Notes
Rfam assigns this 142-nucleotide sequence from Bacillus salacetis to the family "Ribosomal protein L10 leader". Gene Ontology term of the family: regulation of gene expression. Pairs were carried over by alignment from the consensus structure, which was predicted with CMfinder. By type it is a cis-regulatory leader.

RNA sequence: AAAUAUAUAACAUUUGUACCGUAGACAGCAGGGGCUGCCAAGCUUAAUUUCCUGCCGAGGUAAUUGCGAUAUGACGAUUCUCAGGAAUUCGUAUGCAAUGCCUUCAUGUCUAUCAACGAUAUGGAGGCAUUUUUAUUGUGAU
Numbered sequence: 001a002a003a004u005a006u007a008u009a010a011c012a013u014u015u016g017u018a019c020c021g022u023a024g025a026c027a028g029c030a031g032g033g034g035c036u037g038c039c040a041a042g043c044u045u046a047a048u049u050u051c052c053u054g055c056c057g058a059g060g061u062a063a064u065u066g067c068g069a070u071a072u073g074a075c076g077a078u079u080c081u082c083a084g085g086a087a088u089u090c091g092u093a094u095g096c097a098a099u100g101c102c103u104u105c106a107u108g109u110c111u112a113u114c115a116a117c118g119a120u121a122u123g124g125a126g127g128c129a130u131u132u133u134u135a136u137u138g139u140g141a142u
Stems, first nucleotide, its partner, number of pairs: 028055006034043003101127010